[Rfam]
RNA: Lysine riboswitch aptamer
RNA sequence: CGAUGAGGUAGAGGUCGCGGUUUUUAUUAGUAAAAUGGACUAGAUGCAGAGACAUCAAUGACCCCAUUUGAAAGGAAAAGCCGCCGAAGUGUGCCAUUUAUCUCUGUAAAUGCAUGCUGGGGCUGUCUCCGAAUAGGGACAGAACUGUCACGCUUGGCCUUACCAUCCAUGCGUGAAGAGCUAUCUUUCGG
Numbered sequence: 001c002g003a004u005g006a007g008g009u010a011g012a013g014g015u016c017g018c019g020g021u022u023u024u025u026a027u028u029a030g031u032a033a034a035a036u037g038g039a040c041u042a043g044a045u046g047c048a049g050a051g052a053c054a055u056c057a058a059u060g061a062c063c064c065c066a067u068u069u070g071a072a073a074g075g076a077a078a079a080g081c082c083g084c085c086g087a088a089g090u091g092u093g094c095c096a097u098u099u100a101u102c103u104c105u106g107u108a109a110a111u112g113c114a115u116g117c118u119g120g121g122g123c124u125g126u127c128u129c130c131g132a133a134u135a136g137g138g139a140c141a142g143a144a145c146u147g148u149c150a151c152g153c154u155u156g157g158c159c160u161u162a163c164c165a166u167c168c169a170u171g172c173g174u175g176a177a178g179a180g181c182u183a184u185c186u187u188u189c190g191g
Stems, first nucleotide, its partner, number of pairs: 006186006017084009033069006088118007097109002119146002123142007148176006